[Rfam]
Bicoid 3'-UTR regulatory element: a 549-nucleotide RNA sequence from Drosophila mojavensis. Its family is annotated with regulation of bicoid mRNA localization in the Gene Ontology. For this family Rfam cites "Secondary structure of the 3' UTR of bicoid mRNA" (Brunel and Ehresmann, Biochimie, 2004). The source organism's lineage runs through Eukaryota, Mandibulata, Endopterygota, Brachycera and mojavensis species complex.

RNA sequence: GUUAUAGCUGUUAAUGCAUCUUCAAUUCAUCAAUACUUUAUUGGAAGCUUCCUUUGCAAAAUGUUCCUUUAUCUCGUGUUCGUCUGGCAGGGCCUUUCCAAAAGCCCAGCAAUGCCCAUCCAGAUCUACUUGAGAUAAUAUGGGCUUAAUUGAAGGUUUUGCAGAUGAAGCUUCCACAAAAAAUUGCCAAGUAGAGUUCGAAUUAAUUUUUAUAACUUUGAUCAAGUGGCAUGGCUAACAAAAACUGUACUGAUCUAAAUGAAAAAUGUUUCUCUUGCUGAUAAUCGCAGGACCGUCUGUAAUAAUUCGGCCUGCCAUUAUCAUCCAAAGAUCGAACGUUUAAACAAUAAUAAUUCAUCAGAAUAUUUUCAAAUUCCUCUAUGCCACAGUUUUCAUGUGACAAUCAAACAUUCUACACGUGAGAAUUGUUAACAAAUUGUUCAAAAUUACAUGAAAAACAUCGAUCACGGUUAUUGAAACAAAAACUAGAAUUCACUUGGAAGUUUUUUAGAUUCAUGAUGAAUUGAAAAUGUAUUGAAAACUUUAAGC
Number, nucleotide and partner (000 for none) at each position: 001g549002u548003u000004a545005u000006a543007g542008c000009u540010g000011u000012u537013a536014a535015u534016g533017c532018a000019u000020c000021u528022u527023c526024a525025a524026u523027u522028c521029a520030u519031c000032a000033a000034u000035a000036c000037u000038u000039u000040a000041u000042u000043g000044g000045a000046a000047g171048c170049u169050u168051c167052c000053u165054u000055u163056g162057c000058a160059a159060a158061a157062u156063g000064u154065u153066c000067c000068u000069u000070u000071a136072u135073c134074u133075c132076g131077u000078g129079u128080u000081c000082g125083u000084c123085u122086g121087g120088c000089a000090g000091g117092g116093c114094c000095u000096u111097u000098c109099c000100a000101a000102a000103a000104g000105c000106c000107c000108a000109g098110c000111a096112a000113u000114g093115c000116c092117c091118a000119u000120c087121c086122a085123g084124a000125u082126c000127u000128a079129c078130u000131u076132g075133a074134g073135a072136u071137a000138a000139u000140a000141u000142g000143g000144g000145c000146u000147u000148a000149a000150u000151u000152g000153a065154a064155g000156g062157u061158u060159u059160u058161g000162c056163a055164g000165a053166u000167g051168a050169a049170g048171c047172u000173u000174c000175c000176a000177c000178a000179a000180a000181a000182a000183a000184u000185u000186g000187c000188c000189a000190a000191g000192u000193a000194g494195a493196g492197u491198u490199c489200g000201a000202a000203u000204u000205a000206a000207u483208u000209u000210u479211u478212a000213u476214a000215a471216c470217u469218u000219u000220g000221a465222u464223c463224a000225a000226g387227u386228g385229g000230c383231a382232u381233g380234g379235c000236u000237a000238a000239c000240a000241a000242a000243a374244a000245c000246u371247g370248u000249a000250c000251u000252g000253a000254u000255c000256u000257a355258a354259a000260u000261g000262a000263a000264a341265a340266a339267u338268g337269u336270u335271u334272c000273u331274c330275u329276u328277g325278c000279u323280g000281a321282u320283a319284a318285u317286c000287g000288c000289a000290g000291g000292a000293c000294c000295g000296u000297c000298u000299g000300u000301a000302a000303u000304a000305a000306u000307u000308c000309g000310g000311c000312c000313u000314g000315c000316c000317a285318u284319u283320a282321u281322c000323a279324u000325c277326c000327a000328a276329a275330g274331a273332u000333c000334g271335a270336a269337c268338g267339u266340u265341u264342a000343a000344a000345c000346a000347a000348u000349a000350a000351u000352a000353a000354u258355u257356c000357a000358u000359c000360a000361g000362a000363a000364u000365a000366u000367u000368u000369u000370c247371a246372a000373a000374u243375u000376c000377c000378u000379c234380u233381a232382u231383g230384c000385c228386a227387c226388a000389g459390u000391u458392u457393u000394c453395a452396u451397g000398u000399g000400a000401c000402a000403a000404u435405c000406a000407a000408a429409c428410a426411u425412u424413c423414u422415a000416c000417a000418c000419g000420u000421g000422a414423g413424a412425a411426u410427u000428g409429u408430u000431a000432a000433c000434a000435a404436a000437u000438u000439g000440u000441u000442c000443a000444a000445a000446a000447u000448u000449a000450c000451a396452u395453g394454a000455a000456a000457a392458a391459c389460a000461u000462c000463g223464a222465u221466c000467a000468c000469g217470g216471u215472u000473a000474u000475u000476g213477a000478a211479a210480c000481a000482a000483a207484a000485a000486c000487u000488a000489g199490a198491a197492u196493u195494c194495a000496c000497u000498u000499g000500g000501a000502a000503g000504u000505u000506u000507u000508u000509u000510a000511g000512a000513u000514u000515c000516a000517u000518g000519a030520u029521g028522a027523a026524u025525u024526g023527a022528a021529a000530a000531u000532g017533u016534a015535u014536u013537g012538a000539a000540a009541a000542c007543u006544u000545u004546a000547a000548g002549c001